[Rfam]
RNA: msiK RNA
Organism: Streptomyces morookaense
RNA sequence: GGACCACUCCCUCUACUCGGAUCGUCCGGCACGUUCCUGCCGGUGAAGGGACUGCAUC
Number, nucleotide and partner (000 for none) at each position: 001g000002g000003a000004c000005c000006a000007c000008u000009c050010c049011c048012u047013c000014u045015a044016c000017u000018c000019g000020g000021a000022u000023c000024g000025u000026c043027c042028g041029g040030c039031a038032c000033g000034u000035u000036c000037c000038u031039g030040c029041c028042g027043g026044u015045g014046a000047a012048g011049g010050g009051a000052c000053u000054g000055c000056a000057u000058c000